The record is a 217-nucleotide RNA sequence from Pelagibacterium lentulum, which matches "permuted transfer-messenger RNA" in Rfam. NCBI's taxonomy places the organism under Bacteria, Pseudomonadati, Pseudomonadota, Alphaproteobacteria, Pelagibacterium. A search with the family's covariance model found it, with a score of 158 bits. The family's consensus secondary structure is taken from published work. From the family's description: Bacterial tmRNA, also known as 10Sa RNA or SsrA, is named for its dual tRNA and mRNA-like properties.
[Rfam]
RNA sequence: GGCGAUAAAUUGCCAUCGUAAUAAACCCAUCGGACCCGGGGGCAGUACCCGGCGCCUCCACCAUUACCCUUUGAUUGAAAGGGCUUUUAUGGGGGCGAAACAGGAUCGACGAGGGCGUAAAGGGUGUGUUUUCGCUCGGCAUGGUACCACCGUUAUCGGACUAAAACUUAUAGUUGCAAAUGACAACAAUAAGGCUCCGGUCGCUGUCGCUGCGUAA
Numbered sequence: 001g002g003c004g005a006u007a008a009a010u011u012g013c014c015a016u017c018g019u020a021a022u023a024a025a026c027c028c029a030u031c032g033g034a035c036c037c038g039g040g041g042g043c044a045g046u047a048c049c050c051g052g053c054g055c056c057u058c059c060a061c062c063a064u065u066a067c068c069c070u071u072u073g074a075u076u077g078a079a080a081g082g083g084c085u086u087u088u089a090u091g092g093g094g095g096c097g098a099a100a101c102a103g104g105a106u107c108g109a110c111g112a113g114g115g116c117g118u119a120a121a122g123g124g125u126g127u128g129u130u131u132u133c134g135c136u137c138g139g140c141a142u143g144g145u146a147c148c149a150c151c152g153u154u155a156u157c158g159g160a161c162u163a164a165a166a167c168u169u170a171u172a173g174u175u176g177c178a179a180a181u182g183a184c185a186a187c188a189a190u191a192a193g194g195c196u197c198c199g200g201u202c203g204c205u206g207u208c209g210c211u212g213c214g215u216a217a
Stems, first nucleotide, its partner, number of pairs: 001136005014126004026115003030112003036052005053097007137152003